[Rfam]
RNA: BsrC
RNA sequence: UCUAACUUAAGCAACGUAAACCCUACCUUCUUUUACGUCCUUGUGACCCCAAAGUCACGCCAGUGUGAAUAAGUAUGAUUAAAAACAA
Numbered sequence: 001u002c003u004a005a006c007u008u009a010a011g012c013a014a015c016g017u018a019a020a021c022c023c024u025a026c027c028u029u030c031u032u033u034u035a036c037g038u039c040c041u042u043g044u045g046a047c048c049c050c051a052a053a054g055u056c057a058c059g060c061c062a063g064u065g066u067g068a069a070u071a072a073g074u075a076u077g078a079u080u081a082a083a084a085a086c087a088a
Stems, first nucleotide, its partner, number of pairs: 036067002040063002042059006